A member of the RNA family "Small nucleolar RNA SNORA9" from Canis lupus, 132 nucleotides long. Rfam's curators write: ACA9 is a member of the H/ACA class of snoRNA that guide the sites of modification of uridines to pseudouridines.
RNA sequence: CGGCAAGCGUCCAGCGUGCUGGGGUCUGCGGUGACCCUGUGCAUUCCUGCACCGCUUGCCACAGCAUCCUGAGACGGUUUGAGGCCUUGCCCUGCUCCAUCCAGAGCGAGGUUAUAGAAAUUUCAGACAGGC
Numbered sequence: 001c002g003g004c005a006a007g008c009g010u011c012c013a014g015c016g017u018g019c020u021g022g023g024g025u026c027u028g029c030g031g032u033g034a035c036c037c038u039g040u041g042c043a044u045u046c047c048u049g050c051a052c053c054g055c056u057u058g059c060c061a062c063a064g065c066a067u068c069c070u071g072a073g074a075c076g077g078u079u080u081g082a083g084g085c086c087u088u089g090c091c092c093u094g095c096u097c098c099a100u101c102c103a104g105a106g107c108g109a110g111g112u113u114a115u116a117g118a119a120a121u122u123u124c125a126g127a128c129a130g131g132c
Base pairs, nucleotide, nucleotide: 003059004058005057006056007055008054017043018042019041022037023036024035025034026033070125071124072123073122074121085111086110087109088108089107090106092104093103094102
Gene Ontology terms of the family: nucleolus and RNA processing.